[Rfam]
RNA sequence: ACCGGUCCUCGGUAGUGGUUCCCAGGCUCCGAGCCAGCUAGCUCCAGACCUGGGCGCUUCGAUCGAAGACCGGC
Numbered sequence: 001a002c003c004g005g006u007c008c009u010c011g012g013u014a015g016u017g018g019u020u021c022c023c024a025g026g027c028u029c030c031g032a033g034c035c036a037g038c039u040a041g042c043u044c045c046a047g048a049c050c051u052g053g054g055c056g057c058u059u060c061g062a063u064c065g066a067a068g069a070c071c072g073g074c
Stems, first nucleotide, its partner, number of pairs: 002073006009066005017058003021054006028048002
RNA: Actino-pnp RNA
Organism: Actinoplanes aureus